A member of the RNA family "Nuclear RNase P" from Penaeus vannamei, 269 nucleotides long.
Pairs were carried over by alignment from the consensus structure, which is taken from published work.
A search with the family's covariance model found it, with a score of 148 bits.
RNA sequence: GGUAGCAUAAGCUCACUCUAGGGGUCACUAAUAUUACCCCUGGGAAGGUCUGAGAGAGGAGUCAUGUAUGCUCUUGCAGGGCAACCUCCAAAAGGAGGGACAGGACAACAGAAAGGCCCUGACUGGAGGUCAUCAAGGACACCUUGGACACUAAUCUAAAGGUGGAGAUUCCUCCAGUCUUGGUUGGGAGUCCUGUGACUAGCUUAAUUAAGUGUGAUGAGUGAGGUGGCAUCUUAGCCAUAACUCAAUUCAGACUAUUCUAUGCUACC
Numbered sequence: 001g002g003u004a005g006c007a008u009a010a011g012c013u014c015a016c017u018c019u020a021g022g023g024g025u026c027a028c029u030a031a032u033a034u035u036a037c038c039c040c041u042g043g044g045a046a047g048g049u050c051u052g053a054g055a056g057a058g059g060a061g062u063c064a065u066g067u068a069u070g071c072u073c074u075u076g077c078a079g080g081g082c083a084a085c086c087u088c089c090a091a092a093a094g095g096a097g098g099g100a101c102a103g104g105a106c107a108a109c110a111g112a113a114a115g116g117c118c119c120u121g122a123c124u125g126g127a128g129g130u131c132a133u134c135a136a137g138g139a140c141a142c143c144u145u146g147g148a149c150a151c152u153a154a155u156c157u158a159a160a161g162g163u164g165g166a167g168a169u170u171c172c173u174c175c176a177g178u179c180u181u182g183g184u185u186g187g188g189a190g191u192c193c194u195g196u197g198a199c200u201a202g203c204u205u206a207a208u209u210a211a212g213u214g215u216g217a218u219g220a221g222u223g224a225g226g227u228g229g230c231a232u233c234u235u236a237g238c239c240a241u242a243a244c245u246c247a248a249u250u251c252a253g254a255c256u257a258u259u260c261u262a263u264g265c266u267a268c269c
Base pairs, nucleotide, nucleotide: 001269002268003267004266007263008262009261012225013224014223015222016221017220018219020041021040022039023038024037050253051252052251053250054249060200061199062198063197069083070082071081072080073079085098086097087096088095089094100196101195102194103193104192105191106190118183119182226241227240228239229238230237
Description: By type it is a ribozyme.